A member of the RNA family "Tryptophan operon leader" from Trabulsiella odontotermitis, 95 nucleotides long. On this family, see Kolter and Yanofsky, Annu Rev Genet 1982: "Attenuation in amino acid biosynthetic operons". The organism belongs to Trabulsiella, within Bacteria. Its family is annotated with transcriptional attenuation by ribosome and tryptophan biosynthetic process in the Gene Ontology. Rfam's curators write: At least 6 amino acid operons are known to be regulated by attenuation. In each a leader sequence of 150-200 bp is found upstream of the first gene in the operon. This leader sequence can assume two different secondary structures known as the terminator and the anti-terminator structure. In each case the leader also codes for very short peptide sequence that is rich in the end product amino acid of the operon. It is annotated as a cis-regulatory leader. The base pairs follow the family's consensus structure, which is taken from published work.

[Rfam]
RNA sequence: AAAGGCUGGUGGCGCACGUCCUGUUAACGGGCACGUGUCGUACGUCUGCAAUCUGCACACAGAUACCUGGCCCGCGUAGACGCGGGCUUUUUUUU
Dot-bracket structure: ........(((..(((((.((((....))))..)))))..))).........................((((((((....)))))))).......